A member of the RNA family "R2 RNA element" from Hermetia illucens, 155 nucleotides long.
Lineage of the source: Eukaryota > Insecta > Endopterygota > Panorpida > Hermetia.
It scores 38 bits against the family's covariance model.
Rfam 15.1 lists 3,698 matches to the family in 74 species.
About the family: This family represents the 3' UTR region of the R2 retrotransposable element.
A reference for the family is Ruschak et al. (2004), "Secondary structure models of the 3' untranslated regions of diverse R2 RNAs", RNA.
Rfam classes the family as a cis-regulatory element.
[Rfam]
RNA sequence: ACAAAGCUAAAGUGAGCUGACUCCGCCCCGUGAUAUAAAAUCUUAUGGUGGUUUCACGGGGCUUGGGGGGAAUCGGGGGUGGUUUUAGUGGGUAAGAAUCUCCCACGCUGGCGGGUUCAGGCCAGUGUUUUUUGAAGAUUUCCACCUUCUCCAAA
Number, nucleotide and partner (000 for none) at each position: 001a000002c000003a000004a000005a000006g000007c000008u000009a000010a000011a000012g000013u000014g000015a000016g000017c000018u000019g000020a000021c000022u000023c000024c000025g000026c061027c060028c059029c058030g057031u056032g055033a054034u000035a000036u000037a000038a000039a000040a000041u000042c000043u000044u000045a000046u000047g000048g000049u000050g000051g000052u000053u000054u033055c032056a031057c030058g029059g028060g027061g026062c000063u154064u153065g152066g151067g150068g000069g000070g000071a000072a000073u000074c000075g149076g148077g147078g146079g145080u144081g143082g142083u000084u000085u000086u000087a000088g104089u000090g102091g101092g100093u000094a000095a000096g000097a000098a000099u000100c092101u091102c090103c000104c088105a000106c127107g126108c125109u124110g123111g122112c000113g000114g000115g000116u000117u000118c000119a000120g000121g000122c111123c110124a109125g108126u107127g106128u000129u000130u000131u000132u000133u000134g000135a000136a000137g000138a000139u000140u000141u000142c082143c081144a080145c079146c078147u077148u076149c075150u067151c066152c065153a064154a063155a000